[Rfam]
RNA: COG3860 RNA
RNA sequence: CGGUCGGCAGUUCACCCAGGCGUCGCCAUCCCGAAAGGGAAUGCUGAACCUGCCA
Numbered sequence: 001c002g003g004u005c006g007g008c009a010g011u012u013c014a015c016c017c018a019g020g021c022g023u024c025g026c027c028a029u030c031c032c033g034a035a036a037g038g039g040a041a042u043g044c045u046g047a048a049c050c051u052g053c054c055a
Stems, first nucleotide, its partner, number of pairs: 002016003029040004